Background:
The family of this 69-nucleotide RNA from Phocaeicola plebeius is "Fluoride riboswitch aptamer (crcB RNA motif)". Rfam's curators put it in the seed alignment.
[Rfam]
RNA sequence: UCGAAUCAAGGGAAUGGGACUUCCCUGUGAUAAACCGCUAAUGAAGUAGCUGAUAGUUCCUACCGGAGC
Numbered sequence: 001u002c003g004a005a006u007c008a009a010g011g012g013a014a015u016g017g018g019a020c021u022u023c024c025c026u027g028u029g030a031u032a033a034a035c036c037g038c039u040a041a042u043g044a045a046g047u048a049g050c051u052g053a054u055a056g057u058u059c060c061u062a063c064c065g066g067a068g069c
Stems, first nucleotide, its partner, number of pairs: 010025004016060006037050004